[Rfam]
RNA: Glycine riboswitch aptamer
RNA sequence: CACCUCUGGAAAGCAGGCGUCGUUCCCUCGAUGGAGGGAACGGGCCUCACCGAAGGGGAAACCCCGCUCCGCGGGUGAAGCUCUCAGGUGCCCAUGACAGAGGGGGA
Numbered sequence: 001c002a003c004c005u006c007u008g009g010a011a012a013g014c015a016g017g018c019g020u021c022g023u024u025c026c027c028u029c030g031a032u033g034g035a036g037g038g039a040a041c042g043g044g045c046c047u048c049a050c051c052g053a054a055g056g057g058g059a060a061a062c063c064c065c066g067c068u069c070c071g072c073g074g075g076u077g078a079a080g081c082u083c084u085c086a087g088g089u090g091c092c093c094a095u096g097a098c099a100g101a102g103g104g105g106g107a
Stems, first nucleotide, its partner, number of pairs: 001105001003103006015047004049089003052085002056083003063075003